[Rfam]
RNA sequence: UAUUUGUAAGAGCCGAAUUUCCGGGUGUCCGGAAAACGGGGGAUCCGUCUUGGGUGAAUUGGCCUCGCAACAGAGGGGCCAUAGGCAAACCUUCAACCGAACCCUUAAGCUAACCUCGCAGGCUUGGAAGGAGCUUUU
Numbered sequence: 001u002a003u004u005u006g007u008a009a010g011a012g013c014c015g016a017a018u019u020u021c022c023g024g025g026u027g028u029c030c031g032g033a034a035a036a037c038g039g040g041g042g043a044u045c046c047g048u049c050u051u052g053g054g055u056g057a058a059u060u061g062g063c064c065u066c067g068c069a070a071c072a073g074a075g076g077g078g079c080c081a082u083a084g085g086c087a088a089a090c091c092u093u094c095a096a097c098c099g100a101a102c103c104c105u106u107a108a109g110c111u112a113a114c115c116u117c118g119c120a121g122g123c124u125u126g127g128a129a130g131g132a133g134c135u136u137u138u
Stems, first nucleotide, its partner, number of pairs: 011124004018035007037118005052104003060081007084098002
Dot-bracket structure: ..........((((...(((((((....))))))).(((((..........(((.....(((((((........)))))))..((...........))...))).........)))))..))))..............
The family of this 138-nucleotide RNA sequence from Paenibacillus lemnae is "c-di-AMP riboswitch aptamer (ydaO/yuaA leader)". The match comes from Rfam's covariance-model search (65 bits). The organism belongs to Paenibacillus, within Bacteria.